RNA sequence: CUGUUCAUCAACUUGGUUGUGACUUCUUUGGUUCAUUAAGAUAUCACAGCCACUUUGAUGAGCUAGG
Numbered sequence: 001c002u003g004u005u006c007a008u009c010a011a012c013u014u015g016g017u018u019g020u021g022a023c024u025u026c027u028u029u030g031g032u033u034c035a036u037u038a039a040g041a042u043a044u045c046a047c048a049g050c051c052a053c054u055u056u057g058a059u060g061a062g063c064u065a066g067g
Stems, first nucleotide, its partner, number of pairs: 005061007014052009025043001027041001
Dot-bracket structure: ....(((((((..(((((((((..(.(.............).))))))))))..)))))))......
About this RNA: Rfam assigns this 67-nucleotide sequence from Phaedon cochleariae to the family "mir-2 microRNA precursor family". Its family is annotated with miRNA-mediated post-transcriptional gene silencing and RISC complex in the Gene Ontology. For this family Rfam cites "An extensive class of small RNAs in Caenorhabditis elegans" (Lee and Ambros, Science, 2001). It scores 49 bits against the family's covariance model.